[Rfam]
A member of the RNA family "RNA Staph. aureus E (RoxS)" from Bacillus sp. DNRA2, 119 nucleotides long.
Its family is annotated with regulation of translational initiation in the Gene Ontology.
The base pairs follow the family's consensus structure, which is taken from published work.
Taxonomically the source falls in Bacillus (Bacteria, Bacilli, Caryophanales, Bacillaceae).
It is annotated as a small RNA.

RNA sequence: GUGAAGUUGAUCACAAGCAAACAUAUACCCCUUUGUUUGACCGUGAAAAAUUUCUCCCAUCCCCUUUGUUCGUAAAAUAACAGAAAAAACCUUGUAGCCCAAGACUACAAGGUUUUUUU
Numbered sequence: 001g002u003g004a005a006g007u008u009g010a011u012c013a014c015a016a017g018c019a020a021a022c023a024u025a026u027a028c029c030c031c032u033u034u035g036u037u038u039g040a041c042c043g044u045g046a047a048a049a050a051u052u053u054c055u056c057c058c059a060u061c062c063c064c065u066u067u068g069u070u071c072g073u074a075a076a077a078u079a080a081c082a083g084a085a086a087a088a089a090c091c092u093u094g095u096a097g098c099c100c101a102a103g104a105c106u107a108c109a110a111g112g113u114u115u116u117u118u119u
Base pairs, nucleotide, nucleotide: 003054004053005052006051007050008049011046012045013044014043018039019038020037021036022035023034070082073079086116087115088114089113090112091111092110093109094108095107096106